[Rfam]
RNA sequence: UACCCGGGGGUGCAGUGCUUUACCUCUGGUUGGGUUGAGAGUCUGAGAUGAAGCACUGUAACUCCGGAUG
Numbered sequence: 001u002a003c004c005c006g007g008g009g010g011u012g013c014a015g016u017g018c019u020u021u022a023c024c025u026c027u028g029g030u031u032g033g034g035u036u037g038a039g040a041g042u043c044u045g046a047g048a049u050g051a052a053g054c055a056c057u058g059u060a061a062c063u064c065c066g067g068a069u070g
Stems, first nucleotide, its partner, number of pairs: 004067003009062001011060009021050002024047003028043002030040002
The family of this 70-nucleotide RNA sequence from Petromyzon marinus is "mir-143 microRNA precursor family". Rfam's curators put it in the seed alignment.